[Rfam]
RNA: tRNA
Organism: Neobacillus massiliamazoniensis
RNA sequence: GGAGGAGUACCCAAGUGGUUAUAAGGGGGCGCACUCGAAAUGCGUUAGGACGGGCAACCGUUGCGUGAGUUCGAAUCUCACCUUCUCCG
Numbered sequence: 001g002g003a004g005g006a007g008u009a010c011c012c013a014a015g016u017g018g019u020u021a022u023a024a025g026g027g028g029g030c031g032c033a034c035u036c037g038a039a040a041u042g043c044g045u046u047a048g049g050a051c052g053g054g055c056a057a058c059c060g061u062u063g064c065g066u067g068a069g070u071u072c073g074a075a076u077c078u079c080a081c082c083u084u085c086u087c088c089g
Stems, first nucleotide, its partner, number of pairs: 001088007010027003029045005065081005